[Rfam]
RNA sequence: GUGGGUCCAACAGGGGCGACUUGAGAUCACAUCAAGGUGCAUUUGAUCUUACUAUAUGCUUGAUGAUGUGUUCUCAGGUCGCCCCUGUAGGACUUCC
Numbered sequence: 001g002u003g004g005g006u007c008c009a010a011c012a013g014g015g016g017c018g019a020c021u022u023g024a025g026a027u028c029a030c031a032u033c034a035a036g037g038u039g040c041a042u043u044u045g046a047u048c049u050u051a052c053u054a055u056a057u058g059c060u061u062g063a064u065g066a067u068g069u070g071u072u073c074u075c076a077g078g079u080c081g082c083c084c085c086u087g088u089a090g091g092a093c094u095u096c097c
Base pairs, nucleotide, nucleotide: 007091008090011087012086013085014084016082017081018080019079023075024074025073026072028070029069030068031067032066
A member of the RNA family "MIR398 microRNA precursor family" from Camellia sinensis, 97 nucleotides long. A search with the family's covariance model found it, with a score of 72 bits. The literature on the family includes a 2010 paper in Nucleic Acids Res by Zeng et al., "Conservation and divergence of microRNAs and their functions in Euphorbiaceous plants". Taxonomically the source falls in Camellia sinensis (Eukaryota, Embryophyta, Magnoliopsida, Pentapetalae). Gene Ontology terms of the family: miRNA-mediated post-transcriptional gene silencing and RISC complex.